[Rfam]
RNA: Alphaproteobacteria transfer-messenger RNA
RNA sequence: GCAUUUGCAUCUCGCCCGGCCCUGACCUAUAUAGAACCUGCCCUUCGGGGCUAUGGCGAUAAACUGUCAUUGUAAUAAACCUUUCGGACCCGGGGGCGGUACCCGGCGUCUCCACCAUCUCCCCUCUUCGAGGUGAGCCAAUGGGGACGAAAUAGGAUCGACGAGGGCGUAAAGAGUGUGCUUUUGCUCGGUGAGGUACCACCGUUAUCGGUCCAAAACUUAUAGUUGCAAAUGACAACCAUAAGGCUCCGGUCGCUCUCGCCGCGUAAGCGGUGCUAGCACUGGGAAUUUAAGUCCUCCGCUCCUAGCCGGGCGACAGGCGGGGUUCGCAGGCACCUGGCAACAGAAGCCUGCACU
Numbered sequence: 001g002c003a004u005u006u007g008c009a010u011c012u013c014g015c016c017c018g019g020c021c022c023u024g025a026c027c028u029a030u031a032u033a034g035a036a037c038c039u040g041c042c043c044u045u046c047g048g049g050g051c052u053a054u055g056g057c058g059a060u061a062a063a064c065u066g067u068c069a070u071u072g073u074a075a076u077a078a079a080c081c082u083u084u085c086g087g088a089c090c091c092g093g094g095g096g097c098g099g100u101a102c103c104c105g106g107c108g109u110c111u112c113c114a115c116c117a118u119c120u121c122c123c124c125u126c127u128u129c130g131a132g133g134u135g136a137g138c139c140a141a142u143g144g145g146g147a148c149g150a151a152a153u154a155g156g157a158u159c160g161a162c163g164a165g166g167g168c169g170u171a172a173a174g175a176g177u178g179u180g181c182u183u184u185u186g187c188u189c190g191g192u193g194a195g196g197u198a199c200c201a202c203c204g205u206u207a208u209c210g211g212u213c214c215a216a217a218a219c220u221u222a223u224a225g226u227u228g229c230a231a232a233u234g235a236c237a238a239c240c241a242u243a244a245g246g247c248u249c250c251g252g253u254c255g256c257u258c259u260c261g262c263c264g265c266g267u268a269a270g271c272g273g274u275g276c277u278a279g280c281a282c283u284g285g286g287a288a289u290u291u292a293a294g295u296c297c298u299c300c301g302c303u304c305c306u307a308g309c310c311g312g313g314c315g316a317c318a319g320g321c322g323g324g325g326u327u328c329g330c331a332g333g334c335a336c337c338u339g340g341c342a343a344c345a346g347a348a349g350c351c352u353g354c355a356c357u
Base pairs, nucleotide, nucleotide: 040051041050042049043048055188056187057186058185059184066181067180068178069177070176071175080167081166082165084164085163086162090106091105092104093103094102107149108148109147110146111145112144113143189204190203191202192201195214196213198212199211200210323338324337325336326335329354330353331352332351333350334349